[Rfam]
RNA sequence: CUGUGCCGUAUCGAAGAUGAUAUAGGCAACAUAUGUCAUAUACCUUGCUGUAUAUGACACAGCACUCCGCGACAGGACCAGGCUCGUCCUGUCUCAUCGUCGCACUAUGGUGCGACGACGCGAUUCCGUGUUGAAUGACGUUUGCCCUCGUCUGGGCAACGUCCGGAGGA
Numbered sequence: 001c002u003g004u005g006c007c008g009u010a011u012c013g014a015a016g017a018u019g020a021u022a023u024a025g026g027c028a029a030c031a032u033a034u035g036u037c038a039u040a041u042a043c044c045u046u047g048c049u050g051u052a053u054a055u056g057a058c059a060c061a062g063c064a065c066u067c068c069g070c071g072a073c074a075g076g077a078c079c080a081g082g083c084u085c086g087u088c089c090u091g092u093c094u095c096a097u098c099g100u101c102g103c104a105c106u107a108u109g110g111u112g113c114g115a116c117g118a119c120g121c122g123a124u125u126c127c128g129u130g131u132u133g134a135a136u137g138a139c140g141u142u143u144g145c146c147c148u149c150g151u152c153u154g155g156g157c158a159a160c161g162u163c164c165g166g167a168g169g170a
Stems, first nucleotide, its partner, number of pairs: 005027003008023005036057008071093008097118008137163005143158005